[Rfam]
RNA: mir-2807 microRNA precursor family
Organism: Bombyx mori
RNA sequence: UUAACUCAAAUCUGUAUGGAGUUGGAACGUUUGCCUACGUUUGCCGCUAGGGGCGCUGUACCAACUCUAUACAAACUUUAGUUA
Dot-bracket structure: .......((.(.((((.(.((((((.(((....(((..((.....))..)))....))).)))))).).)))).).))......